Shown here is a 376-nucleotide sequence from a Saprospiraceae bacterium, a member of the family "Bacterial RNase P class A". Rfam classes the family as a ribozyme.
[Rfam]
RNA sequence: UUGAUAUGCCGCUCUAUCGCUUCCGGGAAGCCGGAAGAGGAAAGUCCGGACAACGUAGAGUACCACACCACCUAACGGGUGGGACUGCGCUUCGGUGCAGUACAGCUUAGUGUCACAGAAAAUAACCACCACGACUUUCGGGUCGUGGUAAGGGUGAAAAUGAGAGGUAAGAGCUCUCGUGGCGGGGCAGCAAUGUGUCGUCAGGACAAACCUUGUGGGUUGAAAUGCCAUGUACAUUCGUAUUCCUGUCAAAGGACAAAAUUGACUCGGUUUUGUUGUCGAAAGACAUAUACGGAGGGGUAGGCAGCUUAGAUAAAUGAUAGAGAUCACGCUUCCGGGUGUGAUACAGAAUCCGGCUUACAGGCAUAUUUUUUAA
Numbered sequence: 001u002u003g004a005u006a007u008g009c010c011g012c013u014c015u016a017u018c019g020c021u022u023c024c025g026g027g028a029a030g031c032c033g034g035a036a037g038a039g040g041a042a043a044g045u046c047c048g049g050a051c052a053a054c055g056u057a058g059a060g061u062a063c064c065a066c067a068c069c070a071c072c073u074a075a076c077g078g079g080u081g082g083g084a085c086u087g088c089g090c091u092u093c094g095g096u097g098c099a100g101u102a103c104a105g106c107u108u109a110g111u112g113u114c115a116c117a118g119a120a121a122a123u124a125a126c127c128a129c130c131a132c133g134a135c136u137u138u139c140g141g142g143u144c145g146u147g148g149u150a151a152g153g154g155u156g157a158a159a160a161u162g163a164g165a166g167g168u169a170a171g172a173g174c175u176c177u178c179g180u181g182g183c184g185g186g187g188c189a190g191c192a193a194u195g196u197g198u199c200g201u202c203a204g205g206a207c208a209a210a211c212c213u214u215g216u217g218g219g220u221u222g223a224a225a226u227g228c229c230a231u232g233u234a235c236a237u238u239c240g241u242a243u244u245c246c247u248g249u250c251a252a253a254g255g256a257c258a259a260a261a262u263u264g265a266c267u268c269g270g271u272u273u274u275g276u277u278g279u280c281g282a283a284a285g286a287c288a289u290a291u292a293c294g295g296a297g298g299g300g301u302a303g304g305c306a307g308c309u310u311a312g313a314u315a316a317a318u319g320a321u322a323g324a325g326a327u328c329a330c331g332c333u334u335c336c337g338g339g340u341g342u343g344a345u346a347c348a349g350a351a352u353c354c355g356g357c358u359u360a361c362a363g364g365c366a367u368a369u370u371u372u373u374u375a376a
Stems, first nucleotide, its partner, number of pairs: 003370008011361001012325007020037007042359003046356005051222004060279002063218005068082005083103001084101007104213002110211002112207003126153002128149009161179006181202005187196003226306004237296005274288003